[Rfam]
RNA sequence: GCGGGCAUCUUACCAGGCAGUGCUGGAUUGUGCCGGAGCUCUAACACUGUCUGGUAACGAUGUUCGC
Number, nucleotide and partner (000 for none) at each position: 001g000002c066003g065004g064005g063006c062007a061008u060009c059010u057011u056012a055013c054014c053015a052016g051017g050018c049019a048020g047021u046022g045023c000024u043025g042026g041027a040028u000029u000030g000031u000032g000033c000034c000035g000036g000037a000038g000039c000040u027041c026042u025043a024044a000045c022046a021047c020048u019049g018050u017051c016052u015053g014054g013055u012056a011057a010058c000059g009060a008061u007062g006063u005064u004065c003066g002067c000

mir-8/mir-141/mir-200 microRNA precursor family: a 67-nucleotide RNA sequence from Ptilonorhynchus violaceus. The family has 164 seed sequences and 2,669 matches in Rfam 15.1. A search with the family's covariance model found it, with a score of 69 bits. A reference for the family is Lagos-Quintana et al. (2001), "Identification of novel genes coding for small expressed RNAs", Science. The base pairs follow the family's consensus structure, which was predicted with RNAalifold. Taxonomically the source falls in Ptilonorhynchus (Eukaryota, Opisthokonta, Sauria, Neognathae).